[Rfam]
RNA: Group II catalytic intron D1-D4-6
Organism: Acaryochloris marina
RNA sequence: AAAGUCCUCACCCUAGAAGCCUUGGCUAGGCACUAAGUACUGAGUGUUGCACUGUUCCCGGUAACGAGGGGAGUGAAGCGUACACAAGGAGGUGAUGGGCCGCAAUGCGUAAGCGUGAAGGGAUUGAGCCCCGUUAUCCCCAAUAACUGUGGAUGCCGACAUGUUCUAAAUCAUGGAAGGCAAAACUUAAAGAGCCAAUAGCCAUGGCUCUAGCAGGUCCACCGGGGUCAAAGACCG
Numbered sequence: 001a002a003a004g005u006c007c008u009c010a011c012c013c014u015a016g017a018a019g020c021c022u023u024g025g026c027u028a029g030g031c032a033c034u035a036a037g038u039a040c041u042g043a044g045u046g047u048u049g050c051a052c053u054g055u056u057c058c059c060g061g062u063a064a065c066g067a068g069g070g071g072a073g074u075g076a077a078g079c080g081u082a083c084a085c086a087a088g089g090a091g092g093u094g095a096u097g098g099g100c101c102g103c104a105a106u107g108c109g110u111a112a113g114c115g116u117g118a119a120g121g122g123a124u125u126g127a128g129c130c131c132c133g134u135u136a137u138c139c140c141c142a143a144u145a146a147c148u149g150u151g152g153a154u155g156c157c158g159a160c161a162u163g164u165u166c167u168a169a170a171u172c173a174u175g176g177a178a179g180g181c182a183a184a185a186c187u188u189a190a191a192g193a194g195c196c197a198a199u200a201g202c203c204a205u206g207g208c209u210c211u212a213g214c215a216g217g218u219c220c221a222c223c224g225g226g227g228u229c230a231a232a233g234a235c236c237g
Stems, first nucleotide, its partner, number of pairs: 012037001014035003019031004025203001040088002044085004048080002050075004055070003059066002125231001126229001128228006149222006155181003160175004186216002191211006